[Rfam]
RNA sequence: AAAUGAAAAGAGCAAACCAUUCGAAAGGAUGGGACGCAAAGCCAGGUAUCUAAAGUAUAUUUGCUAUAUACUAAGAUCGACCGACUGCCAGA
Numbered sequence: 001a002a003a004u005g006a007a008a009a010g011a012g013c014a015a016a017c018c019a020u021u022c023g024a025a026a027g028g029a030u031g032g033g034a035c036g037c038a039a040a041g042c043c044a045g046g047u048a049u050c051u052a053a054a055g056u057a058u059a060u061u062u063g064c065u066a067u068a069u070a071c072u073a074a075g076a077u078c079g080a081c082c083g084a085c086u087g088c089c090a091g092a
Stems, first nucleotide, its partner, number of pairs: 012037002017032006040086002043083001045082003048077003055071006
Annotation:
A member of the RNA family "c-di-GMP-I riboswitch aptamer" from Anaerosolibacter carboniphilus, 92 nucleotides long.